[Rfam]
RNA sequence: CGAAUCCGCGCGGGAGAGUCCUCAGCAGCAGUUUCGCUGGGGCGCCGAAGGAGCAAGUCCCUCCCUUGAAUCUCUCAGGUCCCCGUUACCGCGCGGGCGAG
Numbered sequence: 001c002g003a004a005u006c007c008g009c010g011c012g013g014g015a016g017a018g019u020c021c022u023c024a025g026c027a028g029c030a031g032u033u034u035c036g037c038u039g040g041g042g043c044g045c046c047g048a049a050g051g052a053g054c055a056a057g058u059c060c061c062u063c064c065c066u067u068g069a070a071u072c073u074c075u076c077a078g079g080u081c082c083c084c085g086u087u088a089c090c091g092c093g094c095g096g097g098c099g100a101g
Stems, first nucleotide, its partner, number of pairs: 006096008020042007044080003047076002051074003057067001

Annotation
A member of the RNA family "Glycine riboswitch aptamer" from Streptomyces sp. 3214.6, 101 nucleotides long.